[Rfam]
RNA sequence: UCGGCUCCGGUUCACGCCGACACCUCCACUUCGGGAGGGGCGACCCGGGGCC
Numbered sequence: 001u002c003g004g005c006u007c008c009g010g011u012u013c014a015c016g017c018c019g020a021c022a023c024c025u026c027c028a029c030u031u032c033g034g035g036a037g038g039g040g041c042g043a044c045c046c047g048g049g050g051c052c
Base pairs, nucleotide, nucleotide: 003052004051005050007048008047009046010045015042016041017040018039023038024037025036026035027034